[Rfam]
RNA: SAM riboswitch aptamer (S box leader)
Organism: Virgibacillus oceani
RNA sequence: UUCUUAUUAGAGAGGUGGAGGGAAUUGGUCCAUCGAUACCUCGGCAGCGGACUUUACUAAGUACUGUGCCAAAUCCAACAAGCUUAGGCUUGAAAAAUAAGAA
Dot-bracket structure: ((((((((...(((((...(((..[[[[)))......)))))((((.((.((((....))))..))))))...(]]]](((((....)))))..)))))))))